Record summary
A member of the RNA family "pemK RNA" from Oscillibacter sp. CAG:155, 80 nucleotides long. A search with the family's covariance model found it, with a score of 45 bits. Rfam classes the family as a cis-regulatory element.

[Rfam]
RNA sequence: ACAAUGGUACCCCUGCCCAGCCACAGCCUCAAGCAAUGGGGGCAGCUCGGAGAGAUCCUCGGAGGGGUUUGAUUCCCGGA
Numbered sequence: 001a002c003a004a005u006g007g008u009a010c011c012c013c014u015g016c017c018c019a020g021c022c023a024c025a026g027c028c029u030c031a032a033g034c035a036a037u038g039g040g041g042g043c044a045g046c047u048c049g050g051a052g053a054g055a056u057c058c059u060c061g062g063a064g065g066g067g068u069u070u071g072a073u074u075c076c077c078g079g080a
Base pairs, nucleotide, nucleotide: 012078013045014044015043016042017041018040046064047063048062050060051059052058065077066076067075